[Rfam]
RNA sequence: UAAAAGGGUUGGUUGGCUAAAGGUUAGUUUAGAUGGGCGGUGUGUUUAUCUAUGGUUAGUGUAAAAAUAACAGUGACAAUAAAAUUAGAUACUGUAGCGUGAAAUAAAAAGUAAGCUAAAAACACCGCAUCUAAUCUCCGUUUCAAACCCACUCUAAAUAUGCCAUGCCUACCCUCGUUUGGUGGGUGCUGUAUGGCCAUCAAGUCAUAUGGCCGACAUAAUUUGUGGAAACCAAUAGGGUUAGCUAGCUCGGCUGGCCCUCCAU
Numbered sequence: 001u002a003a004a005a006g007g008g009u010u011g012g013u014u015g016g017c018u019a020a021a022g023g024u025u026a027g028u029u030u031a032g033a034u035g036g037g038c039g040g041u042g043u044g045u046u047u048a049u050c051u052a053u054g055g056u057u058a059g060u061g062u063a064a065a066a067a068u069a070a071c072a073g074u075g076a077c078a079a080u081a082a083a084a085u086u087a088g089a090u091a092c093u094g095u096a097g098c099g100u101g102a103a104a105u106a107a108a109a110a111g112u113a114a115g116c117u118a119a120a121a122a123c124a125c126c127g128c129a130u131c132u133a134a135u136c137u138c139c140g141u142u143u144c145a146a147a148c149c150c151a152c153u154c155u156a157a158a159u160a161u162g163c164c165a166u167g168c169c170u171a172c173c174c175u176c177g178u179u180u181g182g183u184g185g186g187u188g189c190u191g192u193a194u195g196g197c198c199a200u201c202a203a204g205u206c207a208u209a210u211g212g213c214c215g216a217c218a219u220a221a222u223u224u225g226u227g228g229a230a231a232c233c234a235a236u237a238g239g240g241u242u243a244g245c246u247a248g249c250u251c252g253g254c255u256g257g258c259c260c261u262c263c264a265u
Base pairs, nucleotide, nucleotide: 008217009216010215011214012213014165015164016163017162166188167187168186169185170184171183172182189212190211191210192209193208194207195206237261238260239259240258241257242256243255244254245253246252

This 265-nucleotide RNA sequence from Gossypium mustelinum belongs to the Rfam family "U11 spliceosomal RNA". Rfam 15.1 lists 2,595 matches to the family in 1,202 species. A search with the family's covariance model found it, with a score of 45 bits.